[Rfam]
RNA sequence: UCAGUGGUACAUGAUGACUAUUUCUUUUUUCCCCAUCAUAUCGACUAUGCUGAUCAAGCAUGUGUUCUAGCCAAAUAGCCUGAUUCCACUGA
Numbered sequence: 001u002c003a004g005u006g007g008u009a010c011a012u013g014a015u016g017a018c019u020a021u022u023u024c025u026u027u028u029u030u031c032c033c034c035a036u037c038a039u040a041u042c043g044a045c046u047a048u049g050c051u052g053a054u055c056a057a058g059c060a061u062g063u064g065u066u067c068u069a070g071c072c073a074a075a076u077a078g079c080c081u082g083a084u085u086c087c088a089c090u091g092a
Stems, first nucleotide, its partner, number of pairs: 001092007009084001

This 92-nucleotide RNA from Pantherophis guttatus belongs to the Rfam family "Small nucleolar SNORD12/SNORD106". Rfam 15.1 lists 2,264 matches to the family in 650 species. The match comes from Rfam's covariance-model search (62 bits). The source organism's lineage runs through Eukaryota, Sauria, Squamata, Colubridae and Pantherophis. Its Rfam clan is "SNORD12 clan".